[Rfam]
RNA sequence: ACAGGGGAUGCUGAAAACCUGGGAUAGAGUAAGCA
Numbered sequence: 001a002c003a004g005g006g007g008a009u010g011c012u013g014a015a016a017a018c019c020u021g022g023g024a025u026a027g028a029g030u031a032a033g034c035a
Stems, first nucleotide, its partner, number of pairs: 002021004010034003